[Rfam]
RNA sequence: CUUACCGGAGGUGACAUGGAUCCCGAUCCCAUUCCCCGAUAUCGCGGGAGUUUUUUUCGCGCCGGUAAGGCUGUGGUGACUGUCUUACCGGCGCGGUGAGGCAGUGACGUCGU
Numbered sequence: 001c002u003u004a005c006c007g008g009a010g011g012u013g014a015c016a017u018g019g020a021u022c023c024c025g026a027u028c029c030c031a032u033u034c035c036c037c038g039a040u041a042u043c044g045c046g047g048g049a050g051u052u053u054u055u056u057u058c059g060c061g062c063c064g065g066u067a068a069g070g071c072u073g074u075g076g077u078g079a080c081u082g083u084c085u086u087a088c089c090g091g092c093g094c095g096g097u098g099a100g101g102c103a104g105u106g107a108c109g110u111c112g113u
Base pairs, nucleotide, nucleotide: 001069002068003067004066005065006064007063008062010060017031018030019029036050079105080104081103082102083101084100085099086098087097088096
RNA: Magnesium riboswitch aptamer (Magnesium responsive RNA element)